[Rfam]
RNA sequence: CCUCAUGUACGACCAUGAGUAGCCUACGGUGGCAUGCAGCAGCAGCAAUGCAGUUGUGUGAAGCUCACCUGACAACGUAACCCCGCGAAAGCGGUGAACCUCACUCGCAAGAUGAGGUUUGGACACUGCCAGCAGAAAGGCGGUCGAGGUG
Number, nucleotide and partner (000 for none) at each position: 001c000002c019003u018004c017005a016006u015007g014008u000009a000010c000011g000012a000013c000014c007015a006016u005017g004018a003019g002020u000021a000022g000023c000024c000025u000026a000027c000028g069029g068030u067031g066032g065033c060034a059035u058036g057037c056038a055039g054040c053041a000042g051043c050044a049045g000046c000047a000048a000049u044050g043051c042052a000053g040054u039055u038056g037057u036058g035059u034060g033061a000062a000063g000064c000065u032066c031067a030068c029069c028070u000071g000072a000073c000074a000075a000076c000077g000078u000079a000080a000081c000082c000083c094084c093085g092086c091087g000088a000089a000090a000091g086092c085093g084094g083095u121096g120097a119098a118099c000100c000101u000102c000103a000104c000105u112106c111107g000108c000109a000110a000111g106112a105113u000114g000115a000116g000117g000118u098119u097120u096121g095122g000123a000124c000125a144126c143127u142128g141129c140130c139131a000132g000133c000134a000135g000136a000137a000138a000139g130140g129141c128142g127143g126144u125145c000146g000147a000148g000149g000150u000151g000
Notes
Shown here is a 151-nucleotide RNA sequence from Diaphorobacter sp. HDW4B, a member of the family "Group II catalytic intron D1-D4-7". Its family is annotated with Group II intron splicing in the Gene Ontology. The family has 244 seed sequences and 1,296 matches in Rfam 15.1. Pairs were carried over by alignment from the consensus structure. About the family: Group II introns are found in rRNA, tRNA and mRNA of organelles in fungi, plants and protists, and also in mRNA in bacteria.